[Rfam]
Nucleotides: 119
Stems, first nucleotide, its partner, number of pairs: 001015005016041006023034004046118001048092002050089004054080002057077003061073004097115006
Number, partner (000 for none) and nucleotide at each position: 001015g002014g003013g004012a005011g006000c007000a008000g009000g010000c011005c012004u013003c014002c015001c016041g017040a018039a019038g020037u021036c022000g023034g024033c025032u026031u027000u028000c029000a030000g031026g032025a033024g034023c035000a036021g037020g038019c039018u040017u041016c042000a043000a044000a045000c046118c047000g048092c049091c050089c051088g052087g053086u054080g055079c056000u057077g058076c059075u060000g061073c062072g063071u064070c065000c066000a067000a068000a069000a070064g071063a072062c073061g074000u075059g076058g077057u078000g079055g080054u081000g082000a083000g084000c085000g086053a087052c088051c089050g090000u091049g092048g093000a094000a095000a096000a097115g098114u099113c100112a101111c102110c103000c104000g105000g106000c107000u108000a109000g110102g111101g112100u113099g114098g115097c116000a117000g118046g119000u
Description:
A member of the RNA family "Group II catalytic intron D1-D4-2" from Paraburkholderia phymatum, 119 nucleotides long. About the family: Group II introns are found in rRNA, tRNA and mRNA of organelles in fungi, plants and protists, and also in mRNA in bacteria.